The record is a 108-nucleotide RNA from Bacillus thuringiensis, which matches "SAM riboswitch aptamer (S box leader)" in Rfam. Its family is annotated with regulation of gene expression in the Gene Ontology. Lineage of the source: Bacteria > Bacillota > Bacilli > Bacillaceae > [Bacillus thuringiensis] serovar konkukian. From the family's description: The SAM riboswitch is found upstream of a number of genes which code for proteins involved in methionine or cysteine biosynthesis in Gram-positive bacteria. The family's consensus secondary structure is taken from published work.
RNA sequence: UUCUUAUCAAGAGCAGGUGGAGGGACGAGCCCGACGAAACCCGGCAACCGAUCUACAUAAUUGUAGACACGGUGCUAAUUCUCGCAGCAUUACGCUGACAGAUAAGGA
Numbered sequence: 001u002u003c004u005u006a007u008c009a010a011g012a013g014c015a016g017g018u019g020g021a022g023g024g025a026c027g028a029g030c031c032c033g034a035c036g037a038a039a040c041c042c043g044g045c046a047a048c049c050g051a052u053c054u055a056c057a058u059a060a061u062u063g064u065a066g067a068c069a070c071g072g073u074g075c076u077a078a079u080u081c082u083c084g085c086a087g088c089a090u091u092a093c094g095c096u097g098a099c100a101g102a103u104a105a106g107g108a
Base pairs, nucleotide, nucleotide: 001108002107003106004105005104006103007102008101013042016041017040018039022032023031024030026084027083028082029081043076044075045074046073048072049071050068052066080100085097086096087095088094